[Rfam]
About this RNA
Rfam assigns this 82-nucleotide RNA from Callorhinchus milii to the family "mir-19 microRNA precursor family". For this family Rfam cites "Identification of novel genes coding for small expressed RNAs" (Lagos-Quintana et al., Science, 2001).

RNA sequence: GACUCUGGUUAGUUUUGCUGGCUUUGCAGUCAGUUGCGUGAUGCUCAGUACUGUGCAAAUCCACGCAAAACUGACUGCGGCA
Numbered sequence: 001g002a003c004u005c006u007g008g009u010u011a012g013u014u015u016u017g018c019u020g021g022c023u024u025u026g027c028a029g030u031c032a033g034u035u036g037c038g039u040g041a042u043g044c045u046c047a048g049u050a051c052u053g054u055g056c057a058a059a060u061c062c063a064c065g066c067a068a069a070a071c072u073g074a075c076u077g078c079g080g081c082a
Base pairs, nucleotide, nucleotide: 003080004079006077007076008075009074010073011072012071013070014069015068016067017066018065020062021061023059024058025057026056027055028054032052033051034050
The match comes from Rfam's covariance-model search (62 bits).